[Rfam]
RNA sequence: AAGCCAGUCAAUUAAUCUGCUUACCUGAAUGUGUUUUUGCAGAAAUUUUAACAAAGCUGGCAAUAGUAAAGCCAUGGUACGAGCCUUACGGACAUUGAAGUCGUUAAGGUCCCUAAAAAUGGCUAUAACA
Numbered sequence: 001a002a003g004c005c006a007g008u009c010a011a012u013u014a015a016u017c018u019g020c021u022u023a024c025c026u027g028a029a030u031g032u033g034u035u036u037u038u039g040c041a042g043a044a045a046u047u048u049u050a051a052c053a054a055a056g057c058u059g060g061c062a063a064u065a066g067u068a069a070a071g072c073c074a075u076g077g078u079a080c081g082a083g084c085c086u087u088a089c090g091g092a093c094a095u096u097g098a099a100g101u102c103g104u105u106a107a108g109g110u111c112c113c114u115a116a117a118a119a120u121g122g123c124u125a126u127a128a129c130a
Stems, first nucleotide, its partner, number of pairs: 003061005016043005071123004083110006091102003